[Rfam]
RNA sequence: UACCGAGGUUUUCCUCGGCAGUUAACUACAGCCGAUUUUUUAAUUCCUCGACAGUUAACUGCCGAAGGAGCAA
Numbered sequence: 001u002a003c004c005g006a007g008g009u010u011u012u013c014c015u016c017g018g019c020a021g022u023u024a025a026c027u028a029c030a031g032c033c034g035a036u037u038u039u040u041u042a043a044u045u046c047c048u049c050g051a052c053a054g055u056u057a058a059c060u061g062c063c064g065a066a067g068g069a070g071c072a073a
Stems, first nucleotide, its partner, number of pairs: 012069002015066001016064012
Shown here is a 73-nucleotide sequence from Medicago truncatula, a member of the family "MIR2629 microRNA precursor family". The organism belongs to Medicago, within Eukaryota. The match comes from Rfam's covariance-model search (61 bits).